Rfam assigns this 68-nucleotide sequence from Sinocyclocheilus anshuiensis to the family "Selenocysteine insertion sequence 1".
By type it is a cis-regulatory element.
The family has 61 seed sequences and 3,793 matches in Rfam 15.1.
The base pairs follow the family's consensus structure, which is taken from published work.
Taxonomically the source falls in Sinocyclocheilus (Eukaryota, Metazoa, Deuterostomia, Clupeocephala).

RNA sequence: CAUGGACUAAUGAUGGUUUGUUUGGAAACCCCUCUUGAGGAAAGAACAGACCUGAUGCAUUUGGCGUG
Numbered sequence: 001c002a003u004g005g006a007c008u009a010a011u012g013a014u015g016g017u018u019u020g021u022u023u024g025g026a027a028a029c030c031c032c033u034c035u036u037g038a039g040g041a042a043a044g045a046a047c048a049g050a051c052c053u054g055a056u057g058c059a060u061u062u063g064g065c066g067u068g
Stems, first nucleotide, its partner, number of pairs: 001068004015052009030039001032037001
For this family Rfam cites "A novel RNA structural motif in the selenocysteine insertion element of eukaryotic selenoprotein mRNAs" (Walczak et al., RNA, 1996).